Small nucleolar RNA SNORA9: a 132-nucleotide sequence from Danio rerio. The organism belongs to Danio, within Eukaryota. Its family is annotated with RNA processing and nucleolus in the Gene Ontology.
[Rfam]
RNA sequence: UUGCAGGCUGUUCAGCGAGGUUGAGUCUUUGUGACUCUUGCCUUUCCUGUAAAGUCUGCUAGAGAGAUUUGAGGUGGUUUGAGGCCUGCUGGGAUUCCCUUCUCAGUUUGGUUAUGUAAUCUUCAAACAUUU
Numbered sequence: 001u002u003g004c005a006g007g008c009u010g011u012u013c014a015g016c017g018a019g020g021u022u023g024a025g026u027c028u029u030u031g032u033g034a035c036u037c038u039u040g041c042c043u044u045u046c047c048u049g050u051a052a053a054g055u056c057u058g059c060u061a062g063a064g065a066g067a068u069u070u071g072a073g074g075u076g077g078u079u080u081g082a083g084g085c086c087u088g089c090u091g092g093g094a095u096u097c098c099c100u101u102c103u104c105a106g107u108u109u110g111g112u113u114a115u116g117u118a119a120u121c122u123u124c125a126a127a128c129a130u131u132u
Base pairs, nucleotide, nucleotide: 003059004058005057006056007055008054018043019042020041023037024036025035026034027033070125071124072123073122074121085111086110088108090106092104093103